Small nucleolar RNA snoR8a: a 90-nucleotide RNA from Nelumbo nucifera. The literature on the family includes a 2001 paper in RNA by Brown et al., "Multiple snoRNA gene clusters from Arabidopsis". By type it is a C/D-box small nucleolar RNA. It scores 98 bits against the family's covariance model.
RNA sequence: GUGGAUGCGAUGAUUAUAAGUAAUUCCUCGUUCUGAAUGCCAUUGCCAUGGCAUGACAGACUCAUUUUACACCCAUAGAAUAUGAGCACC
Numbered sequence: 001g002u003g004g005a006u007g008c009g010a011u012g013a014u015u016a017u018a019a020g021u022a023a024u025u026c027c028u029c030g031u032u033c034u035g036a037a038u039g040c041c042a043u044u045g046c047c048a049u050g051g052c053a054u055g056a057c058a059g060a061c062u063c064a065u066u067u068u069a070c071a072c073c074c075a076u077a078g079a080a081u082a083u084g085a086g087c088a089c090c
Base pairs, nucleotide, nucleotide: 003090004089006088007087